[Rfam]
RNA sequence: AGGGGGGCUGGUAAACAGCGCCCUAAUGUUCGACAGAAGUCAGCAGAAGCCAUAGUAGCCGUGCCAACCACCCGGUGAAGGGC
Numbered sequence: 001a002g003g004g005g006g007g008c009u010g011g012u013a014a015a016c017a018g019c020g021c022c023c024u025a026a027u028g029u030u031c032g033a034c035a036g037a038a039g040u041c042a043g044c045a046g047a048a049g050c051c052a053u054a055g056u057a058g059c060c061g062u063g064c065c066a067a068c069c070a071c072c073c074g075g076u077g078a079a080g081g082g083c
Stems, first nucleotide, its partner, number of pairs: 003023003007019004040047002049083003058076004063071001

This 83-nucleotide RNA sequence from Geoanaerobacter pelophilus belongs to the Rfam family "Group II catalytic intron D1-D4-1". Group II introns are found in rRNA, tRNA and mRNA of organelles in fungi, plants and protists, and also in mRNA in bacteria. Gene Ontology term of the family: Group II intron splicing.